Rfam assigns this 71-nucleotide RNA sequence from Pieris macdunnoughi to the family "mir-10 microRNA precursor family". The family's consensus secondary structure was predicted with PFOLD.

RNA sequence: CUACAUCUACCCUGUAGAUCCGAAUUUGUUUGAAGUAGGGCGACAAAUUCGGUUCUAGAGAGGUUUGUGUG
Numbered sequence: 001c002u003a004c005a006u007c008u009a010c011c012c013u014g015u016a017g018a019u020c021c022g023a024a025u026u027u028g029u030u031u032g033a034a035g036u037a038g039g040g041c042g043a044c045a046a047a048u049u050c051g052g053u054u055c056u057a058g059a060g061a062g063g064u065u066u067g068u069g070u071g
Base pairs, nucleotide, nucleotide: 002069003068004067005066011060016056017055018054020052021051022050023049024048025047026046027045028044029043030042